[Rfam]
RNA: Bacterial RNase P class B
RNA sequence: GUAGUUGGGUAAUCGAGCAGAAAUGUUAGGAAAGUCCAUGCUAGCACAGGCUGCGAUGCCUGUAGUGUUUGCGCUGGCUUAAUAAAUAAGGCCAGGCACCGCAAGGUGACGGCGAAUCUAGCCUAAGUCUUUGAUAUGGUGAUGAUUCAUAAAGUGCCACAGAAACGAUACUUUUGGAAACAAAAGGGUGAAACGUUGGUAAACCCCACAAGCUAGAAACCCAAAUUUUGGUAGGGGAGUCUCCAAGACCGAACUGAAGGUAUGAGGAGGAAGGGAAACCUUAGAUAAAUGAUUACCGCCUUUAUGGUACGGAACAUGGCUUAUAGAC
Numbered sequence: 001g002u003a004g005u006u007g008g009g010u011a012a013u014c015g016a017g018c019a020g021a022a023a024u025g026u027u028a029g030g031a032a033a034g035u036c037c038a039u040g041c042u043a044g045c046a047c048a049g050g051c052u053g054c055g056a057u058g059c060c061u062g063u064a065g066u067g068u069u070u071g072c073g074c075u076g077g078c079u080u081a082a083u084a085a086a087u088a089a090g091g092c093c094a095g096g097c098a099c100c101g102c103a104a105g106g107u108g109a110c111g112g113c114g115a116a117u118c119u120a121g122c123c124u125a126a127g128u129c130u131u132u133g134a135u136a137u138g139g140u141g142a143u144g145a146u147u148c149a150u151a152a153a154g155u156g157c158c159a160c161a162g163a164a165a166c167g168a169u170a171c172u173u174u175u176g177g178a179a180a181c182a183a184a185a186g187g188g189u190g191a192a193a194c195g196u197u198g199g200u201a202a203a204c205c206c207c208a209c210a211a212g213c214u215a216g217a218a219a220c221c222c223a224a225a226u227u228u229u230g231g232u233a234g235g236g237g238a239g240u241c242u243c244c245a246a247g248a249c250c251g252a253a254c255u256g257a258a259g260g261u262a263u264g265a266g267g268a269g270g271a272a273g274g275g276a277a278a279c280c281u282u283a284g285a286u287a288a289a290u291g292a293u294u295a296c297c298g299c300c301u302u303u304a305u306g307g308u309a310c311g312g313a314a315c316a317u318g319g320c321u322u323a324u325a326g327a328c
Stems, first nucleotide, its partner, number of pairs: 004328003007324001008297007016027004032322003036319005041216005046063006069211003073207001074095006096110001097108004111206002114148004122139002127135003154204002156200003171186006220236003240270005271282004299307002